This 95-nucleotide RNA belongs to the Rfam family "NiCo (Nickel/Cobalt) riboswitch aptamer".
It is one of the family's seed sequences.
The literature on the family includes a 2015 paper in Mol Cell by Furukawa et al., "Bacterial riboswitches cooperatively bind Ni(2+) or Co(2+) ions and control expression of heavy metal transporters".
The family's consensus secondary structure is taken from published work.
Gene Ontology terms of the family: cobalt ion binding and metal ion homeostasis.
RNA sequence: ACAGUACAAACUGAGCAGGCAAUGUCUGUAAAUGACAUGAAGCCGGGCCGUCGAGACGGCAGCAGAUGGGUAUCAGGCGCAUCUGUGGGACAGUA
Numbered sequence: 001a002c003a004g005u006a007c008a009a010a011c012u013g014a015g016c017a018g019g020c021a022a023u024g025u026c027u028g029u030a031a032a033u034g035a036c037a038u039g040a041a042g043c044c045g046g047g048c049c050g051u052c053g054a055g056a057c058g059g060c061a062g063c064a065g066a067u068g069g070g071u072a073u074c075a076g077g078c079g080c081a082u083c084u085g086u087g088g089g090a091c092a093g094u095a
Stems, first nucleotide, its partner, number of pairs: 010094004016089001018044003022038005047060005062086006